A member of the RNA family "SAM riboswitch aptamer (S box leader)" from Paenibacillus sabuli, 105 nucleotides long. The organism belongs to Paenibacillus, within Bacteria. Rfam links the family to the GO term regulation of gene expression.

RNA sequence: UUCUUAUCAAGAGCAGGCGGAGGGACUGGCCCGAUGAAGCCCGGCAACCGGCAUGAUGCACGGUGCUAAUUCUUGCGGAGACGAUUCGUUUCUGACAGAUGAGAG
Numbered sequence: 001u002u003c004u005u006a007u008c009a010a011g012a013g014c015a016g017g018c019g020g021a022g023g024g025a026c027u028g029g030c031c032c033g034a035u036g037a038a039g040c041c042c043g044g045c046a047a048c049c050g051g052c053a054u055g056a057u058g059c060a061c062g063g064u065g066c067u068a069a070u071u072c073u074u075g076c077g078g079a080g081a082c083g084a085u086u087c088g089u090u091u092c093u094g095a096c097a098g099a100u101g102a103g104a105g
Base pairs, nucleotide, nucleotide: 001105002104003103004102005101006100007099008098013042016041017040018039022032023031024030026075028073029072043067044066045065046064048063049062051059052058053057071097076094077093078092079091080090081089